About this RNA
The record is a 69-nucleotide RNA from Dysosmobacter welbionis, which matches "S10-Clostridia ribosomal protein leader" in Rfam. It is annotated as a cis-regulatory leader. The source organism's lineage runs through Bacteria, Bacillati, Eubacteriales, Oscillospiraceae and Dysosmobacter.
Nucleotides: 069
Base pairs, nucleotide, nucleotide: 014045015044016043018042019041020040025034026033027032052068053067054066055065056064057063
Number, partner (000 for none) and nucleotide at each position: 001000g002000u003000a004000c005000u006000g007000c008000g009000a010000u011000g012000a013000a014045c015044c016043g017000g018042g019041a020040g021000a022000u023000u024000g025034c026033u027032c028000g029000a030000a031000a032027g033026a034025g035000g036000u037000a038000a039000c040020u041019u042018c043016c044015g045014g046000g047000g048000a049000g050000u051000a052068u053067g054066u055065c056064c057063g058000a059000u060000a061000a062000u063057c064056g065055g066054g067053c068052g069000g